Record summary
Alphaproteobacterial sRNA ar35: a 137-nucleotide RNA from Rhizobium phaseoli. For this family Rfam cites "A survey of sRNA families in alpha-proteobacteria" (del Val et al., RNA Biol, 2012). Taxonomically the source falls in Rhizobium (Bacteria, Pseudomonadati, Pseudomonadota, Hyphomicrobiales). Pairs were carried over by alignment from the consensus structure.
[Rfam]
RNA sequence: UGUGCAGCUGUCGUUAACCGCUCGUUAACCUUUCGAAGGCAGUCUCGUUGCAAUACCGCUUUCUCCUUGACCACGGAUGAACUGGCACUGAGACGAGCGGAUGACGAAAAGGCCGGUUUGAACCGGCCUUUUUGUUG
Dot-bracket structure: (((((.........................................)).)))...((((((((((..((.(((.........)))))..)))).))))))..((((((((((((((......)))))))))))))).